[Rfam]
RNA sequence: GCGGGAAGGAACGCGGUCGCGCGUCCGUUCUCCCUUCCGGGGGGCGUGCGUGAGGAAAGUCCGGGCACCGCAGGGCAGGAUGCCAGCUAACGGCUGGGCGGCGAGCAAACGCCGGGAAGCAGGUUCGCUUCCCGGGACGGCGCGAAGCCGACGGAAAGUGCCACAGAAACCAGACCGCCGCGCCCGUUCACCGGAACCACACGGUGGGCGCGGUCAGGGUGAAACGGUGCGGUAAGAGCGCACCAGAUUCCCUGGAGACAGGGAGUGCUGGUAAACCCCAUCCGGUGCAAGACCCGACAGUGGAGGAGGGCGGCCCGCCCGUCGAUUCCCAGGAUGGUCGCAACGAGGUGAAUGGCGACAUUCAUCCCAGAUAGAUGACCGUGACUGCCCGACGUUCUUCCGACGGCAGACACAGAACCCGGCUUAUCACCUUCCCGUGCCA
Numbered sequence: 001g002c003g004g005g006a007a008g009g010a011a012c013g014c015g016g017u018c019g020c021g022c023g024u025c026c027g028u029u030c031u032c033c034c035u036u037c038c039g040g041g042g043g044g045c046g047u048g049c050g051u052g053a054g055g056a057a058a059g060u061c062c063g064g065g066c067a068c069c070g071c072a073g074g075g076c077a078g079g080a081u082g083c084c085a086g087c088u089a090a091c092g093g094c095u096g097g098g099c100g101g102c103g104a105g106c107a108a109a110c111g112c113c114g115g116g117a118a119g120c121a122g123g124u125u126c127g128c129u130u131c132c133c134g135g136g137a138c139g140g141c142g143c144g145a146a147g148c149c150g151a152c153g154g155a156a157a158g159u160g161c162c163a164c165a166g167a168a169a170c171c172a173g174a175c176c177g178c179c180g181c182g183c184c185c186g187u188u189c190a191c192c193g194g195a196a197c198c199a200c201a202c203g204g205u206g207g208g209c210g211c212g213g214u215c216a217g218g219g220u221g222a223a224a225c226g227g228u229g230c231g232g233u234a235a236g237a238g239c240g241c242a243c244c245a246g247a248u249u250c251c252c253u254g255g256a257g258a259c260a261g262g263g264a265g266u267g268c269u270g271g272u273a274a275a276c277c278c279c280a281u282c283c284g285g286u287g288c289a290a291g292a293c294c295c296g297a298c299a300g301u302g303g304a305g306g307a308g309g310g311c312g313g314c315c316c317g318c319c320c321g322u323c324g325a326u327u328c329c330c331a332g333g334a335u336g337g338u339c340g341c342a343a344c345g346a347g348g349u350g351a352a353u354g355g356c357g358a359c360a361u362u363c364a365u366c367c368c369a370g371a372u373a374g375a376u377g378a379c380c381g382u383g384a385c386u387g388c389c390c391g392a393c394g395u396u397c398u399u400c401c402g403a404c405g406g407c408a409g410a411c412a413c414a415g416a417a418c419c420c421g422g423c424u425u426a427u428c429a430c431c432u433u434c435c436c437g438u439g440c441c442a
Base pairs, nucleotide, nucleotide: 001438002437003436004435005434006433007432008431009430011427012383013382014381015380016379017378018377020052021051022050023049024048026046027045028044029043030042031041032040057425058424059423061422062421063420064419065418066287067286068285069284073316074315075314076313078283079282080281081280082279083097084096085095086094087093098152099150100149101148102147153278154277158276159275160272161271162270175218176217177214178213179212180211181210182209183208184207185206186205187204188203226244227243228242229241230240231239246268247266248265249264250263251262252261253260254259291339292338293337294336302329303328304327305326308320309319310318311317347366348365349364350363351362352361353360354359

Rfam assigns this 442-nucleotide RNA from Deinococcus aquiradiocola to the family "Bacterial RNase P class A".